[Rfam]
RNA sequence: GUUCUAUGAUGAAAAUGCGUGUCAUCUGAUCUAGCAUAAUUUUUUCCUCCUUUGGGGGAAAAACAAUUAUAAAUGAUGAAUAACUGCGCUCUGAGAAC
Dot-bracket structure: ((((...................................((((((((.......))))))))................................))))
Small nucleolar RNA SNORD10: a 98-nucleotide sequence from Trichonephila clavata.
The family has 22 seed sequences and 433 matches in Rfam 15.1.
A reference for the family is Huttenhofer et al. (2001), "RNomics: an experimental approach that identifies 201 candidates for novel, small, non-messenger RNAs in mouse", EMBO J.
Rfam links the family to the GO terms nucleolus and RNA processing.
NCBI's taxonomy places the organism under Eukaryota, Opisthokonta, Ecdysozoa, Arachnida, Trichonephila.
The family's RNA type in Rfam is C/D-box small nucleolar RNA.
A search with the family's covariance model found it, with a score of 44 bits.